Notes:
A member of the RNA family "permuted transfer-messenger RNA" from Candidatus Finniella inopinata, 158 nucleotides long. By type it is a non-coding RNA gene. Lineage of the source: Bacteria > Pseudomonadati > Pseudomonadota > Holosporales > Candidatus Finniella. Pairs were carried over by alignment from the consensus structure, which is taken from published work.
RNA sequence: AGCGAUAAACGGUCUAUGGAAUAGGCGUAGUGGACCCGGGGGCGGUACCCGGCGCCUCCACCAUAUAUUAUGGGGGCGACAUAGGAUCGACACGCGUGGUAAAGAUAGGCUCUUCGCUCGGUAUGGUUCCGUCGUUAUCGGGCUAACAUUAAUAAGUG
Numbered sequence: 001a002g003c004g005a006u007a008a009a010c011g012g013u014c015u016a017u018g019g020a021a022u023a024g025g026c027g028u029a030g031u032g033g034a035c036c037c038g039g040g041g042g043c044g045g046u047a048c049c050c051g052g053c054g055c056c057u058c059c060a061c062c063a064u065a066u067a068u069u070a071u072g073g074g075g076g077c078g079a080c081a082u083a084g085g086a087u088c089g090a091c092a093c094g095c096g097u098g099g100u101a102a103a104g105a106u107a108g109g110c111u112c113u114u115c116g117c118u119c120g121g122u123a124u125g126g127u128u129c130c131g132u133c134g135u136u137a138u139c140g141g142g143c144u145a146a147c148a149u150u151a152a153u154a155a156g157u158g
Stems, first nucleotide, its partner, number of pairs: 001118005014108004026096003030093003036052005053078007119134004